The record is a 100-nucleotide RNA sequence from an Olavius algarvensis Gamma 3 endosymbiont, which matches "Pyrrolysine insertion sequence mttB" in Rfam. The literature on the family includes a 2013 paper in BMC Bioinformatics by Theil Have et al., "Effects of using coding potential, sequence conservation and mRNA structure conservation for predicting pyrroly-sine containing genes". Rfam links the family to the GO term pyrrolysine incorporation.
[Rfam]
RNA sequence: AUGACCGAUUCCAAGUUUCCCGAUUUUCAAGGCGGCGCCGAACGCGCCUAUACCCUUGCCUGCGCGGCGGCCUCCGGCGCCAAUAUCGUUUACGAGUCGG
Numbered sequence: 001a002u003g004a005c006c007g008a009u010u011c012c013a014a015g016u017u018u019c020c021c022g023a024u025u026u027u028c029a030a031g032g033c034g035g036c037g038c039c040g041a042a043c044g045c046g047c048c049u050a051u052a053c054c055c056u057u058g059c060c061u062g063c064g065c066g067g068c069g070g071c072c073u074c075c076g077g078c079g080c081c082a083a084u085a086u087c088g089u090u091u092a093c094g095a096g097u098c099g100g
Base pairs, nucleotide, nucleotide: 003012025032033062034061035060077098